[Rfam]
RNA: Bacterial large subunit ribosomal RNA, nucleotides 2267 to 2852
RNA sequence: CGCGCAGCAGGACGGAAAGACCCCGGGACCUUUACUACAGCUUGGUAUUGGUGGUCGGUUCGGUUUGUGUAGGAUAGGUGGGAGACUGUGAAGCCCGGACGCCAGUUCGGGUGGAGUCAACGUUGAAAUACCACUCUGAUCGUAUUGGCUGUCUAACCUCGGUCCGUUAUCCGGAUCAGGGACAGUGCCUGGUGGGUAGUUUAACUGGGGCGGUUGCCUCCCAAAAUGUAACGGAGGCGCCCAAAGGUUCCCUCAGCCUGGUUGGCAAUCAGGUGGCGAGUGCAAGUGCACAAGGGAGCUUGACUGUGAGACCGACAGGUCGAGCAGGGACGAAAGUCGGGACUAGUGAUCUUACGGUGGCACGUGGAAGCGCCGUGACUCAACGGAUAAAAGGUACCCCGGGGAUAACAGGCUGAUCUUGCCCAAGAGUCCAUAUCGACGGCAUGGUUUGGCACCUCGAUGUCGGCUCGUCGCAUCCUGGGGCCGGAGCAGGUCCCAAGGGUUGGGCUGUUCGCCCAUUAAAGCGGUACGCGAGCUGGGUUUAGAACGUCGUGAGACAGUUCGGUCCCUAUCCGCUGUGCGCGCA
Numbered sequence: 001c002g003c004g005c006a007g008c009a010g011g012a013c014g015g016a017a018a019g020a021c022c023c024c025g026g027g028a029c030c031u032u033u034a035c036u037a038c039a040g041c042u043u044g045g046u047a048u049u050g051g052u053g054g055u056c057g058g059u060u061c062g063g064u065u066u067g068u069g070u071a072g073g074a075u076a077g078g079u080g081g082g083a084g085a086c087u088g089u090g091a092a093g094c095c096c097g098g099a100c101g102c103c104a105g106u107u108c109g110g111g112u113g114g115a116g117u118c119a120a121c122g123u124u125g126a127a128a129u130a131c132c133a134c135u136c137u138g139a140u141c142g143u144a145u146u147g148g149c150u151g152u153c154u155a156a157c158c159u160c161g162g163u164c165c166g167u168u169a170u171c172c173g174g175a176u177c178a179g180g181g182a183c184a185g186u187g188c189c190u191g192g193u194g195g196g197u198a199g200u201u202u203a204a205c206u207g208g209g210g211c212g213g214u215u216g217c218c219u220c221c222c223a224a225a226a227u228g229u230a231a232c233g234g235a236g237g238c239g240c241c242c243a244a245a246g247g248u249u250c251c252c253u254c255a256g257c258c259u260g261g262u263u264g265g266c267a268a269u270c271a272g273g274u275g276g277c278g279a280g281u282g283c284a285a286g287u288g289c290a291c292a293a294g295g296g297a298g299c300u301u302g303a304c305u306g307u308g309a310g311a312c313c314g315a316c317a318g319g320u321c322g323a324g325c326a327g328g329g330a331c332g333a334a335a336g337u338c339g340g341g342a343c344u345a346g347u348g349a350u351c352u353u354a355c356g357g358u359g360g361c362a363c364g365u366g367g368a369a370g371c372g373c374c375g376u377g378a379c380u381c382a383a384c385g386g387a388u389a390a391a392a393g394g395u396a397c398c399c400c401g402g403g404g405a406u407a408a409c410a411g412g413c414u415g416a417u418c419u420u421g422c423c424c425a426a427g428a429g430u431c432c433a434u435a436u437c438g439a440c441g442g443c444a445u446g447g448u449u450u451g452g453c454a455c456c457u458c459g460a461u462g463u464c465g466g467c468u469c470g471u472c473g474c475a476u477c478c479u480g481g482g483g484c485c486g487g488a489g490c491a492g493g494u495c496c497c498a499a500g501g502g503u504u505g506g507g508c509u510g511u512u513c514g515c516c517c518a519u520u521a522a523a524g525c526g527g528u529a530c531g532c533g534a535g536c537u538g539g540g541u542u543u544a545g546a547a548c549g550u551c552g553u554g555a556g557a558c559a560g561u562u563c564g565g566u567c568c569c570u571a572u573c574c575g576c577u578g579u580g581c582g583c584g585c586a
Stems, first nucleotide, its partner, number of pairs: 001582008010574003014569002022403006028395005034200004041192002044189004050153010061142005067136001077135005084118003093112008157180003161177006203215004216238006239384001241341002247299006253279002256274006280289002304327004310321003329338003352378007360371002412453003416450001417447002420444004427437002464539001465537004469531001470528005477502002480497006504518005545563004549558003
Dot-bracket structure: ((((((((.(((.((......(((((((((((.((((...((.((((..((((((((((.(((((.(.........(((((..(((......((((((((....))))))))...)))............)))))).))))).))))))))))...(((.((((((.....))))))))).....)))).))....))))..((((.....))))((((((...........))))))(.((....((((((((.((((((.......))))))...))((......))....))))))....((((..(((......)))..)))).(((....))).))..........(((((((.((........))))))))).....)......)))))..))))))........(((.(((.((((...((.......))...)))).))..))))..........(((((((((((..((.((((((......))))))...)).(((((.....))))).....)))))..)..)))).).....(((((((....))).))))....))..)))))))))))....